[Rfam]
RNA sequence: UACUUAUCAAGAAAGGCUGAGGGAUAUGGCCCUUUGAAGCCUUGACAACCUGUUCUUUUUUUUAUACAACCUGUUUGGAUAAAAAUGAGAAUAAGGUGCCAACUCCAUCACGCAGGAAGAUUGCGUGACAGAUAAGUC
Numbered sequence: 001u002a003c004u005u006a007u008c009a010a011g012a013a014a015g016g017c018u019g020a021g022g023g024a025u026a027u028g029g030c031c032c033u034u035u036g037a038a039g040c041c042u043u044g045a046c047a048a049c050c051u052g053u054u055c056u057u058u059u060u061u062u063u064a065u066a067c068a069a070c071c072u073g074u075u076u077g078g079a080u081a082a083a084a085a086u087g088a089g090a091a092u093a094a095g096g097u098g099c100c101a102a103c104u105c106c107a108u109c110a111c112g113c114a115g116g117a118a119g120a121u122u123g124c125g126u127g128a129c130a131g132a133u134a135a136g137u138c
Stems, first nucleotide, its partner, number of pairs: 002137007013043005021032003026108004044100001046098002049096002052092006104130001109127006

The record is a 138-nucleotide sequence from Flavisolibacter ginsengisoli, which matches "SAM riboswitch aptamer (S box leader)" in Rfam.
The match comes from Rfam's covariance-model search (79 bits).
NCBI's taxonomy places the organism under Bacteria, Pseudomonadati, Bacteroidota, Flavisolibacter, Flavisolibacter ginsengisoli.
Rfam's curators write: The SAM riboswitch is found upstream of a number of genes which code for proteins involved in methionine or cysteine biosynthesis in Gram-positive bacteria.